[Rfam]
RNA: Bacterial RNase P class A
Organism: endosymbiont of unidentified scaly snail isolate Monju
Nucleotides: 356
Stems, first nucleotide, its partner, number of pairs: 001352010011341001012321007020036007041339003045336005050215004057257004062211005067081005082096001083094004097206002102204002104200003119146002121142003127138004154172006173195001174193008219278004229269006248262005285304008
Number, partner (000 for none) and nucleotide at each position: 001352g002351g003350a004349g005348u006347c007346g008345g009344c010343c011341a012321g013320g014319c015318g016317a017316u018315c019000g020036c021035u022034g023033c024032c025031g026030c027000a028000u029000c030026g031025c032024g033023g034022u035021g036020g037000a038000g039000g040000a041339a042338a043337g044000u045336c046335c047334g048333g049332a050215c051214u052213c053212c054000g055000u056000a057257g058256g059255g060254c061000a062211g063210a064209g065208a066207g067081c068080c069079a070078g071077g072000u073000a074000a075000c076000g077071c078070c079069u080068g081067g082096g083094c084093g085092g086091c087000g088000c089000g090000a091086g092085c093084c094083g095000a096082c097206g098205g099000a100000a101000a102204g103203u104200g105199c106198c107000a108000c109000a110000g111000a112000a113000a114000a115000c116000a117000g118000a119146c120145c121142g122141c123140c124000u125000a126000a127138g128137c129136c130135c131000g132000a133000u134000c135130g136129g137128g138127c139000c140123g141122g142121c143000a144000a145120g146119g147000g148000u149000g150000a151000a152000a153000a154172g155171g156170u157169g158168c159167g160000g161000u162000a163000a164000g165000a166000g167159c168158g169157c170156a171155c172154c173195g174193c175192g176191c177190c178189c179188c180187u181186g182000g183000c184000a185000a186181c187180a188179g189178g190177g191176g192175u193174g194000g195173c196000a197000g198106g199105g200104u201000a202000a203103a204102c205098c206097c207066c208065u209064c210063u211062c212053g213052g214051a215050g216000c217000a218000a219278g220277a221276c222275c223000a224000a225000a226000u227000a228000g229269g230268g231267a232266a233265g234264c235000g236000u237000g238000c239000c240000u241000c242000u243000g244000g245000c246000a247000g248262c249261c250260u251259g252258u253000g254060g255059c256058c257057c258252g259251c260250a261249g262248g263000u264234g265233c266232u267231u268230c269229c270000g271000g272000g273000u274000a275222g276221g277220u278219c279000g280000c281000a282000c283000g284000a285304g286303g287302c288301g289300u290299c291298c292297g293000g294000c295000g296000a297292c298291g299290g300289g301288c302287g303286u304285c305000c306000c307000a308000g309000a310000u311000g312000a313000a314000u315018g316017a317016u318015c319014g320013u321012c322000c323000u324000c325000g326000a327000c328000a329000g330000a331000a332049u333048c334047c335046g336045g337043c338042u339041u340000a341011u342000c343010g344009g345008c346007c347006g348005g349004c350003u351002c352001c353000c354000c355000u356000c